Description:
Rfam assigns this 173-nucleotide RNA sequence from Marvinbryantia formatexigens to the family "Clostridiales-1 RNA". Rfam 15.1 lists 1,172 matches to the family in 137 species. Rfam classes the family as a small RNA. NCBI's taxonomy places the organism under Bacteria, Bacillati, Clostridia, Marvinbryantia, Marvinbryantia formatexigens. Pairs were carried over by alignment from the consensus structure, which is taken from published work.
[Rfam]
RNA sequence: GAAAGCCCGGUCUCCAUGCAGGGAUGCGGCGUGAGCAUGCUCACGCCAGCGGACAAGCAUGAGAGACGCCGACCCAUAUGAGCAAAAAAGGAACGCGAACGCAGAGAGCGGGACGAUUUGCGAAUAUGGGGAGGAUUGCGGGAAUCCGAAGGAUGGAGCAAUCCAGGGCUUUC
Numbered sequence: 001g002a003a004a005g006c007c008c009g010g011u012c013u014c015c016a017u018g019c020a021g022g023g024a025u026g027c028g029g030c031g032u033g034a035g036c037a038u039g040c041u042c043a044c045g046c047c048a049g050c051g052g053a054c055a056a057g058c059a060u061g062a063g064a065g066a067c068g069c070c071g072a073c074c075c076a077u078a079u080g081a082g083c084a085a086a087a088a089a090g091g092a093a094c095g096c097g098a099a100c101g102c103a104g105a106g107a108g109c110g111g112g113a114c115g116a117u118u119u120g121c122g123a124a125u126a127u128g129g130g131g132a133g134g135a136u137u138g139c140g141g142g143a144a145u146c147c148g149a150a151g152g153a154u155g156g157a158g159c160a161a162u163c164c165a166g167g168g169c170u171u172u173c
Base pairs, nucleotide, nucleotide: 001173002172003171004170005169006168007167010067011066012065013064015061016060017059018058019057022054025051026050027049029047031044032043033042034041035040073130074129075128076127077126078125079124082121083120084119085118090114094110095109096108133164134163135162136161137160138159139158144154145153146152147151